[Rfam]
RNA sequence: UUCUUAUCAAGAGAGACGGAGGGACUGGCCCAAGGAUGUCUCAGCAACCGGCCAUAUAUUGGUAAUGGUGCUAAUUCCAGCAGGUAUUGUAAGAUACUUGGAAGAUAGGAA
Numbered sequence: 001u002u003c004u005u006a007u008c009a010a011g012a013g014a015g016a017c018g019g020a021g022g023g024a025c026u027g028g029c030c031c032a033a034g035g036a037u038g039u040c041u042c043a044g045c046a047a048c049c050g051g052c053c054a055u056a057u058a059u060u061g062g063u064a065a066u067g068g069u070g071c072u073a074a075u076u077c078c079a080g081c082a083g084g085u086a087u088u089g090u091a092a093g094a095u096a097c098u099u100g101g102a103a104g105a106u107a108g109g110a111a
Base pairs, nucleotide, nucleotide: 001111002110003109004108005107006106007105008104013042014041015040016039017038021031022030023029025080026079027078028077043072044071045070046069048068049067051063052062053061076103081100082099083098084097085096086095
RNA: SAM riboswitch aptamer (S box leader)